[Rfam]
RNA sequence: CCGAUUCUGUCGGGGUGCCUCAGGAUGUUCAGCGUGCUGAAACAUCAAAGAGGUUGAGAUCGCAAUGUGUUUGCGGAUCCCGUUGAACCUGAUCUGGUUAGUGCCAGCGUAGGGAACAGAAAAGCGGGUUUU
Numbered sequence: 001c002c003g004a005u006u007c008u009g010u011c012g013g014g015g016u017g018c019c020u021c022a023g024g025a026u027g028u029u030c031a032g033c034g035u036g037c038u039g040a041a042a043c044a045u046c047a048a049a050g051a052g053g054u055u056g057a058g059a060u061c062g063c064a065a066u067g068u069g070u071u072u073g074c075g076g077a078u079c080c081c082g083u084u085g086a087a088c089c090u091g092a093u094c095u096g097g098u099u100a101g102u103g104c105c106a107g108c109g110u111a112g113g114g115a116a117c118a119g120a121a122a123a124g125c126g127g128g129u130u131u132u
Base pairs, nucleotide, nucleotide: 006120007119008118009117010116011082012081013080014079016076017054018053019052020051021050061075062074063073064072065071088113089112090111091110094107095106096105097104

The record is a 132-nucleotide sequence from Venatorbacter sp. C2-1, which matches "TPP riboswitch aptamer (THI element)" in Rfam. About the family: Vitamin B(1) in its active form thiamin pyrophosphate (TPP) is an essential coenzyme that is synthesised by coupling of pyrimidine and thiazole moieties in bacteria. The previously detected thiamin-regulatory element, thi box was extended, resulting in a new, highly conserved RNA secondary structure, the THI element, which is widely distributed in eubacteria and also occurs in some archaea. Analysis of operon structures identified a large number of new candidate thiamin-regulated genes, mostly transporters, in various prokaryotic organisms. The organism belongs to Venatoribacter, within Bacteria.